[Rfam]
RNA sequence: UCACUCACAAAGUGGGUGUGGUUAUGUUACUUUAAACACCAUAUCACAGCCAGCUUUGAUGAGCGAAG
Dot-bracket structure: ....(((((((((((.(((((...(((.............)))))))).))).))))).)))......
Shown here is a 68-nucleotide RNA sequence from Trichonephila clavata, a member of the family "mir-2 microRNA precursor family". Rfam links the family to the GO terms miRNA-mediated post-transcriptional gene silencing and RISC complex. The family's consensus secondary structure was predicted with PFOLD.